[Rfam]
RNA sequence: UUCCACUUCAAUUCCGUAGUGCAUUGCAGUGUUACAAGUGAAAUAGUUCCUGCAAGCAAUGCGGGAUUGUGGGGGCAUU
Numbered sequence: 001u002u003c004c005a006c007u008u009c010a011a012u013u014c015c016g017u018a019g020u021g022c023a024u025u026g027c028a029g030u031g032u033u034a035c036a037a038g039u040g041a042a043a044u045a046g047u048u049c050c051u052g053c054a055a056g057c058a059a060u061g062c063g064g065g066a067u068u069g070u071g072g073g074g075g076c077a078u079u
Stems, first nucleotide, its partner, number of pairs: 006072002009069002013065005020058003024055005